GA-cis RNA: an 84-nucleotide RNA sequence. By type it is a small RNA.
[Rfam]
RNA sequence: CAGAGUAAGCGCCUAUGUGUUGAAUCACAUUUUGAAUGGUGCUUACGGGAUGCCGCCGGGUGUAAACAAGGGGCACUACUAAAC
Numbered sequence: 001c002a003g004a005g006u007a008a009g010c011g012c013c014u015a016u017g018u019g020u021u022g023a024a025u026c027a028c029a030u031u032u033u034g035a036a037u038g039g040u041g042c043u044u045a046c047g048g049g050a051u052g053c054c055g056c057c058g059g060g061u062g063u064a065a066a067c068a069a070g071g072g073g074c075a076c077u078a079c080u081a082a083a084c
Stems, first nucleotide, its partner, number of pairs: 008043006015030005052074003056071002060067002